[Rfam]
RNA: mir-132 microRNA precursor family
Organism: Cynoglossus semilaevis
RNA sequence: CCCCCUAGCGACCAUGGCUGUAGACUGUUACUACAAGAUGCUGUUGCUACAGUAACAAUCUAAUGCCACGGUUACCAUGGAGAC
Numbered sequence: 001c002c003c004c005c006u007a008g009c010g011a012c013c014a015u016g017g018c019u020g021u022a023g024a025c026u027g028u029u030a031c032u033a034c035a036a037g038a039u040g041c042u043g044u045u046g047c048u049a050c051a052g053u054a055a056c057a058a059u060c061u062a063a064u065g066c067c068a069c070g071g072u073u074a075c076c077a078u079g080g081a082g083a084c
Stems, first nucleotide, its partner, number of pairs: 012071002015068004023060002026057007